[Rfam]
RNA: CRISPR RNA direct repeat element
Organism: Nonomuraea glycinis
RNA sequence: GUUGCGAUCCCUCCAGGGUUGAUGAGCGGC
Dot-bracket structure: (((((.(.(((....))).).....)))))